[Rfam]
The family of this 116-nucleotide RNA sequence from Capsicum baccatum is "U5 spliceosomal RNA".
U5 RNA is a component of both types of known spliceosome. The precise function of this molecule is unknown, though it is known that the 5' loop is required for splice site selection and p220 binding, and that both the 3' stem-loop and the Sm site are important for Sm protein binding and cap methylation.
A search with the family's covariance model found it, with a score of 69 bits.
It is annotated as a spliceosomal small nuclear RNA.

RNA sequence: GCCCACGCAGUGACCACAGAUUGAACUAUUCUUUUGCCUUUUAUUAAAGAAUACUGUGUGCGCGGUGCAAAUAGUGGCAUACACCUAUUUUUGGAGGAUACAACUUCUAGGAUGUU
Numbered sequence: 001g002c003c004c005a006c007g008c009a010g011u012g013a014c015c016a017c018a019g020a021u022u023g024a025a026c027u028a029u030u031c032u033u034u035u036g037c038c039u040u041u042u043a044u045u046a047a048a049g050a051a052u053a054c055u056g057u058g059u060g061c062g063c064g065g066u067g068c069a070a071a072u073a074g075u076g077g078c079a080u081a082c083a084c085c086u087a088u089u090u091u092u093g094g095a096g097g098a099u100a101c102a103a104c105u106u107c108u109a110g111g112a113u114g115u116u
Base pairs, nucleotide, nucleotide: 003077004076005075006074008067009066011064012063015060016059017058018057027053028052029051030050031049032048033047034046100115101114102113104111